[Rfam]
RNA sequence: GGCAAUAAAUGAGCGGUGUAAUAAACCUAUUGGACCCGGGGGCGGUACCCGGCGCCUCCACCAAAAACCGGCGGCAUCGAAGGACGGCUUUUGAUGGGGGCGAAAUAGGAUCGACAAGGGUGUAAAGAUCGACUUUUUGCUCGGCAUUGUACCGCCGUUAUCGGGCUAAAAUUGUAGUUGCAAACGACAACUAUGCGGAAGCUCGUCUCGCUGCUUAA
Numbered sequence: 001g002g003c004a005a006u007a008a009a010u011g012a013g014c015g016g017u018g019u020a021a022u023a024a025a026c027c028u029a030u031u032g033g034a035c036c037c038g039g040g041g042g043c044g045g046u047a048c049c050c051g052g053c054g055c056c057u058c059c060a061c062c063a064a065a066a067a068c069c070g071g072c073g074g075c076a077u078c079g080a081a082g083g084a085c086g087g088c089u090u091u092u093g094a095u096g097g098g099g100g101c102g103a104a105a106u107a108g109g110a111u112c113g114a115c116a117a118g119g120g121u122g123u124a125a126a127g128a129u130c131g132a133c134u135u136u137u138u139g140c141u142c143g144g145c146a147u148u149g150u151a152c153c154g155c156c157g158u159u160a161u162c163g164g165g166c167u168a169a170a171a172u173u174g175u176a177g178u179u180g181c182a183a184a185c186g187a188c189a190a191c192u193a194u195g196c197g198g199a200a201g202c203u204c205g206u207c208u209c210g211c212u213g214c215u216u217a218a
Stems, first nucleotide, its partner, number of pairs: 001141005014131004026120003030117003036052005053102007142157004
Dot-bracket structure: (((((........((((........(((.(((...(((((.......)))))(((((((....................................)))))))............)))))).......)))).....)))))((((........)))).............................................................
The record is a 218-nucleotide RNA from Rhizobium etli, which matches "permuted transfer-messenger RNA" in Rfam. Rfam's curators put it in the seed alignment. The family's consensus secondary structure is taken from published work. Bacterial tmRNA, also known as 10Sa RNA or SsrA, is named for its dual tRNA and mRNA-like properties.